[Rfam]
RNA sequence: AUCGCGCCACAACGGCUUCCUGACGUGGCGUCUGUAUUUCAUUUGGAGCA
Numbered sequence: 001a002u003c004g005c006g007c008c009a010c011a012a013c014g015g016c017u018u019c020c021u022g023a024c025g026u027g028g029c030g031u032c033u034g035u036a037u038u039u040c041a042u043u044u045g046g047a048g049c050a
Stems, first nucleotide, its partner, number of pairs: 004031007013022002015049003019046002
Notes:
SAM/SAH riboswitch aptamer: a 50-nucleotide RNA from Sulfitobacter sp. THAF37. Rfam links the family to the GO terms regulation of gene expression and S-adenosylmethionine metabolic process. Taxonomically the source falls in Sulfitobacter (Bacteria, Pseudomonadati, Rhodobacterales, Roseobacteraceae). A search with the family's covariance model found it, with a score of 56 bits. On this family, see Weickhmann et al., Nucleic Acids Res 2019: "The structure of the SAM/SAH-binding riboswitch".